[Rfam]
RNA sequence: ACUGGGUGCAGUGGCGUGUGCCUGUAAUCUCAGCUUUCUGGGAGGUUGAGGCAGUAGGAUUGCUUGAGUCCAGGAGUUCUGUUCCCCACUGAGCUAUGUCGAUCUGGUGUCCACACUAAGGUCAGCAUCAAUAUGGAGACUCUGAGGGAUCUUGGAGCCGCCAGGUUGGUCUAAGGAGGGGAAAACCGACCCAGGCUGGACACAGAGCAGGUAAAAUCCCCCGUGUUGAUUACUAGUGGGAUAGCACUUGUGAAUAGUGAGUGUUGCACAGCCUGAACAAAACAGCAAGACUCUGUCUCUC
Numbered sequence: 001a002c003u004g005g006g007u008g009c010a011g012u013g014g015c016g017u018g019u020g021c022c023u024g025u026a027a028u029c030u031c032a033g034c035u036u037u038c039u040g041g042g043a044g045g046u047u048g049a050g051g052c053a054g055u056a057g058g059a060u061u062g063c064u065u066g067a068g069u070c071c072a073g074g075a076g077u078u079c080u081g082u083u084c085c086c087c088a089c090u091g092a093g094c095u096a097u098g099u100c101g102a103u104c105u106g107g108u109g110u111c112c113a114c115a116c117u118a119a120g121g122u123c124a125g126c127a128u129c130a131a132u133a134u135g136g137a138g139a140c141u142c143u144g145a146g147g148g149a150u151c152u153u154g155g156a157g158c159c160g161c162c163a164g165g166u167u168g169g170u171c172u173a174a175g176g177a178g179g180g181g182a183a184a185a186c187c188g189a190c191c192c193a194g195g196c197u198g199g200a201c202a203c204a205g206a207g208c209a210g211g212u213a214a215a216a217u218c219c220c221c222c223g224u225g226u227u228g229a230u231u232a233c234u235a236g237u238g239g240g241a242u243a244g245c246a247c248u249u250g251u252g253a254a255u256a257g258u259g260a261g262u263g264u265u266g267c268a269c270a271g272c273c274u275g276a277a278c279a280a281a282a283c284a285g286c287a288a289g290a291c292u293c294u295g296u297c298u299c300u301c
Base pairs, nucleotide, nucleotide: 001046002045003044004023005022006021007020008019009018010017028043029042030041048299049298050297051296052295053294054293060288061287062286063285064284068278069277071275072274073273074272079271080270081269082268084266087263088262089261090260093258094257095256096255097254099252104250106248107247108246109245110244111240112239114238115237116236117235118234120231121230122229123228124227125226126225127224128223129168130167131166132165134163135162136161138159140157141156142155143154144153145152146151170176171175178221179220180219181218182217189212190211191210196205197204198203
Dot-bracket structure: ((((((((((......)))))))....(((..........)))))).(((((((.....(((((...((.((((....((((.(..((((..(((((.(....(.(((((((.(((((.(((((((((((((.(((.(.(((((((....))))))).).))).)))).((...)).(((((......(((....(((....)))....)))....))))).)))))))))..)))))))...))))).).).))))).))))..).)))))))).)).....)))))....)))))))..
This 301-nucleotide RNA sequence from Leptobrachium leishanense belongs to the Rfam family "Metazoan signal recognition particle RNA". The source organism's lineage runs through Eukaryota, Vertebrata, Pelobatoidea, Megophryidae and Leptobrachium. It is annotated as a non-coding RNA gene. On this family, see Wild et al., Curr Opin Struct Biol 2002: "Towards the structure of the mammalian signal recognition particle". From the family's description: The signal recognition particle (SRP) is a universally conserved ribonucleoprotein. The match comes from Rfam's covariance-model search (224 bits).